[Rfam]
RNA: Archaeal small subunit ribosomal RNA, nucleotides 880 to 1458
Organism: Acidianus brierleyi
RNA sequence: UGGCGGGGGAGCACCACAAGGGGUGGAACUGCGGCUCAAUUGGAGUCAACGCCUGGAAUCUUACCGGAGGAGACCGCAGUGUGACGGUCAGGCUAAUGACCUUACCUGACUCGCGGAGAGGAGGUGCAUGGCCGUCGCCAGCUCGUGUUGUGAAAUGUCCGGUUAAGUCCGGCAACGAGCGAGACCCCCACCUCUAAUUGGCAUUCUCUCCCCCGGGAGGGACCCACAUUAGAGGGACUGCCGUCGUUAAGACGGAGGAAGGAGGGGGCCACGGCAGGUCAGCAUGCCCCGAAACUUCUGGGCCGCACGCGGGUUACAAUGGCAGGGACAACGGGAGUCCAACCUCGAAAGGGGGAGGUAAUCCCUUAAACCCUGCCUCAGUUGGGAUCGAGGGCUGAAAUUCGCCCUCGUGAACGAGGAAUCCCUAGUAACCGCACGUCAACAACGUGCGGUGAAUACGUCCCUGCUCCUUGCACACACCGCCCGUCGCUCCACCCGAGUGAGAAGAAGUGAGGUUUCUUGCCUUCGGGGUGGGGAAUCGAACUUCUUCUCCGCGAGGGGGGAGAAGUCGUAACAAGG
Numbered sequence: 001u002g003g004c005g006g007g008g009g010a011g012c013a014c015c016a017c018a019a020g021g022g023g024u025g026g027a028a029c030u031g032c033g034g035c036u037c038a039a040u041u042g043g044a045g046u047c048a049a050c051g052c053c054u055g056g057a058a059u060c061u062u063a064c065c066g067g068a069g070g071a072g073a074c075c076g077c078a079g080u081g082u083g084a085c086g087g088u089c090a091g092g093c094u095a096a097u098g099a100c101c102u103u104a105c106c107u108g109a110c111u112c113g114c115g116g117a118g119a120g121g122a123g124g125u126g127c128a129u130g131g132c133c134g135u136c137g138c139c140a141g142c143u144c145g146u147g148u149u150g151u152g153a154a155a156u157g158u159c160c161g162g163u164u165a166a167g168u169c170c171g172g173c174a175a176c177g178a179g180c181g182a183g184a185c186c187c188c189c190a191c192c193u194c195u196a197a198u199u200g201g202c203a204u205u206c207u208c209u210c211c212c213c214c215g216g217g218a219g220g221g222a223c224c225c226a227c228a229u230u231a232g233a234g235g236g237a238c239u240g241c242c243g244u245c246g247u248u249a250a251g252a253c254g255g256a257g258g259a260a261g262g263a264g265g266g267g268g269c270c271a272c273g274g275c276a277g278g279u280c281a282g283c284a285u286g287c288c289c290c291g292a293a294a295c296u297u298c299u300g301g302g303c304c305g306c307a308c309g310c311g312g313g314u315u316a317c318a319a320u321g322g323c324a325g326g327g328a329c330a331a332c333g334g335g336a337g338u339c340c341a342a343c344c345u346c347g348a349a350a351g352g353g354g355g356a357g358g359u360a361a362u363c364c365c366u367u368a369a370a371c372c373c374u375g376c377c378u379c380a381g382u383u384g385g386g387a388u389c390g391a392g393g394g395c396u397g398a399a400a401u402u403c404g405c406c407c408u409c410g411u412g413a414a415c416g417a418g419g420a421a422u423c424c425c426u427a428g429u430a431a432c433c434g435c436a437c438g439u440c441a442a443c444a445a446c447g448u449g450c451g452g453u454g455a456a457u458a459c460g461u462c463c464c465u466g467c468u469c470c471u472u473g474c475a476c477a478c479a480c481c482g483c484c485c486g487u488c489g490c491u492c493c494a495c496c497c498g499a500g501u502g503a504g505a506a507g508a509a510g511u512g513a514g515g516u517u518u519c520u521u522g523c524c525u526u527c528g529g530g531g532u533g534g535g536g537a538a539u540c541g542a543a544c545u546u547c548u549u550c551u552c553c554g555c556g557a558g559g560g561g562g563g564a565g566a567a568g569u570c571g572u573a574a575c576a577a578g579g
Stems, first nucleotide, its partner, number of pairs: 001477002003474003007471007016461002020425005025317001027315003030311004034306002040055001042053002064301007074116004078111002086106003090102003120290002123288004129284002131279003134275004141180006147156003159172004186267004191235007201224001205222007238258002241255005321377007333365003339358002343354004384415001389410007431453008480578001482575001485571002488568001490565004495560003500555002502552010514540010